Shown here is a 113-nucleotide sequence from Halalkalibacterium halodurans, a member of the family "SAM riboswitch aptamer (S box leader)". Lineage of the source: Bacteria > Bacillota > Caryophanales > Halalkalibacterium (ex Joshi et al. 2022) > Halalkalibacterium halodurans. The family has 457 seed sequences and 9,625 matches in Rfam 15.1. Pairs were carried over by alignment from the consensus structure, which is taken from published work.
RNA sequence: CUCUUAUCAUGAGAGGUGGAGGGACUGGCCCGAUGAAGCCCAGCAACCGCCAAGCAGCAAAUCGCUUGGAAAAGGUGCUAAUUCCUGCAAAGCGAUGCUUUGAGAGAUGAGAG
Numbered sequence: 001c002u003c004u005u006a007u008c009a010u011g012a013g014a015g016g017u018g019g020a021g022g023g024a025c026u027g028g029c030c031c032g033a034u035g036a037a038g039c040c041c042a043g044c045a046a047c048c049g050c051c052a053a054g055c056a057g058c059a060a061a062u063c064g065c066u067u068g069g070a071a072a073a074g075g076u077g078c079u080a081a082u083u084c085c086u087g088c089a090a091a092g093c094g095a096u097g098c099u100u101u102g103a104g105a106g107a108u109g110a111g112a113g
Stems, first nucleotide, its partner, number of pairs: 001113008013041001015040003021031003025087001027085002042079004047075002051069001083105001088102005